RNA sequence: UGACAAAUUCAAGGCCAUAGCAGAAGCACUCAUGGUGUGGCCCUGUCAAGUUCCAGUGAAUCUAUGAGUUCUGCU
Numbered sequence: 001u002g003a004c005a006a007a008u009u010c011a012a013g014g015c016c017a018u019a020g021c022a023g024a025a026g027c028a029c030u031c032a033u034g035g036u037g038u039g040g041c042c043c044u045g046u047c048a049a050g051u052u053c054c055a056g057u058g059a060a061u062c063u064a065u066g067a068g069u070u071c072u073g074c075u
Stems, first nucleotide, its partner, number of pairs: 013042004019075007026038003048063001050061004